A member of the RNA family "Archaeal large subunit ribosomal RNA" from Pyrococcus horikoshii, 401 nucleotides of a longer RNA.
RNA sequence: GGGAGUAGCAGCGUAGUCGGGUGAGAAUCCCGACCGCCGGAGGGGCCAGGGUUCCACGGCAAUGGUCGUCAGCCGUGGGUUAGUCGGUCCUAACCCCGCCCGUAACUCGGCGCGGGGGAAAGGGAAACGGGUUUAUAUUCCCGUACCGCGGGGGUAGGUGCGGCAACGCAAGCCCGGAGGGUGACGCCUCGGGGUAGGCGGACCGGCCGAUGAGGCCGGCUAAGCGUAUAAGCCCGGGGAGUGCCGUAAUGGCGAGAACCGGGUGAAAGCGCGAAUGGCCCCCCGUUAGGGGGGUUCCGCCGAUCCCUGGGGCCCGUGAAAAGCCCUCCGGGAAUUCCGAUCCCCCGCGACCGUACCGAGAACCGACACAGGUGCCCCUGGGUGAGAAGCCUAAGGCGUGU
Numbered sequence: 001g002g003g004a005g006u007a008g009c010a011g012c013g014u015a016g017u018c019g020g021g022u023g024a025g026a027a028u029c030c031c032g033a034c035c036g037c038c039g040g041a042g043g044g045g046c047c048a049g050g051g052u053u054c055c056a057c058g059g060c061a062a063u064g065g066u067c068g069u070c071a072g073c074c075g076u077g078g079g080u081u082a083g084u085c086g087g088u089c090c091u092a093a094c095c096c097c098g099c100c101c102g103u104a105a106c107u108c109g110g111c112g113c114g115g116g117g118g119a120a121a122g123g124g125a126a127a128c129g130g131g132u133u134u135a136u137a138u139u140c141c142c143g144u145a146c147c148g149c150g151g152g153g154g155u156a157g158g159u160g161c162g163g164c165a166a167c168g169c170a171a172g173c174c175c176g177g178a179g180g181g182u183g184a185c186g187c188c189u190c191g192g193g194g195u196a197g198g199c200g201g202a203c204c205g206g207c208c209g210a211u212g213a214g215g216c217c218g219g220c221u222a223a224g225c226g227u228a229u230a231a232g233c234c235c236g237g238g239g240a241g242u243g244c245c246g247u248a249a250u251g252g253c254g255a256g257a258a259c260c261g262g263g264u265g266a267a268a269g270c271g272c273g274a275a276u277g278g279c280c281c282c283c284c285g286u287u288a289g290g291g292g293g294g295u296u297c298c299g300c301c302g303a304u305c306c307c308u309g310g311g312g313c314c315c316g317u318g319a320a321a322a323g324c325c326c327u328c329c330g331g332g333a334a335u336u337c338c339g340a341u342c343c344c345c346c347g348c349g350a351c352c353g354u355a356c357c358g359a360g361a362a363c364c365g366a367c368a369c370a371g372g373u374g375c376c377c378c379u380g381g382g383u384g385a386g387a388a389g390c391c392u393a394a395g396g397c398g399u400g401u
Base pairs, nucleotide, nucleotide: 016034017033018032019031020030021029035398036397037396038395043377044376045375046374049357050356054078055077056076057075058074059073063071064070085353086352087351089123090122094117095116096115097114098113099112100110101109102108127144128143129142130141131140147349148348149347150346151345152344153343154342180325181324182323186313187312188311189310190309191308192307193306194305197301198300199299200298201297203219204218205217206216207215224272225271226270227269233263234262235261236260237259243253244252245251284289363372364371379393380392381391382390